c-di-AMP riboswitch aptamer (ydaO/yuaA leader): a 158-nucleotide RNA.

[Rfam]
RNA sequence: CGUGCGCACGCGCCGAAUCCCGCGAGGGAACCGGGGAACCACCACUUGGGGUGAAUCGGGCGUAUGACGCCGUGCCAGGCACGGCGGAUAUACGCGCGUAGGAGACCUUCCUGCUCCGAACCCGUCAGCUAACCCGGUAGGCGAAAGGAAGGAAAGGA
Numbered sequence: 001c002g003u004g005c006g007c008a009c010g011c012g013c014c015g016a017a018u019c020c021c022g023c024g025a026g027g028g029a030a031c032c033g034g035g036g037a038a039c040c041a042c043c044a045c046u047u048g049g050g051g052u053g054a055a056u057c058g059g060g061c062g063u064a065u066g067a068c069g070c071c072g073u074g075c076c077a078g079g080c081a082c083g084g085c086g087g088a089u090a091u092a093c094g095c096g097c098g099u100a101g102g103a104g105a106c107c108u109u110c111c112u113g114c115u116c117c118g119a120a121c122c123c124g125u126c127a128g129c130u131a132a133c134c135c136g137g138u139a140g141g142c143g144a145a146a147g148g149a150a151g152g153a154a155a156g157g158a
Base pairs, nucleotide, nucleotide: 011143012142013141014140018029019028020027030138031137032136033135034134035133040048041047049123050122051121057098058097060095061094062093063092064091065090066089101117102116103115104114
Rfam describes the family as follows. This family represents a conserved RNA structure found upstream of the ydaO and yuaA genes in Bacillus subtilis and related genes in other bacteria. The ydaO/yuaA element is thought to act as a genetic 'off' switch for the ydaO and yuaA genes in its native state.